[Rfam]
RNA sequence: AAAGAGUAAUGUAUAAACAACAGGAAUGUUAUGUACAGUAUACUGUAUAAUUCUAUAUGUAACGUUUUUGUUGUCUUAAAUUGCUCUCC
Numbered sequence: 001a002a003a004g005a006g007u008a009a010u011g012u013a014u015a016a017a018c019a020a021c022a023g024g025a026a027u028g029u030u031a032u033g034u035a036c037a038g039u040a041u042a043c044u045g046u047a048u049a050a051u052u053c054u055a056u057a058u059g060u061a062a063c064g065u066u067u068u069u070g071u072u073g074u075c076u077u078a079a080a081u082u083g084c085u086c087u088c089c
Stems, first nucleotide, its partner, number of pairs: 003087008017074019037054002
Description
The record is an 89-nucleotide RNA sequence from Bicyclus anynana, which matches "mir-3327 microRNA precursor family" in Rfam. The family's consensus secondary structure was predicted with RNAalifold.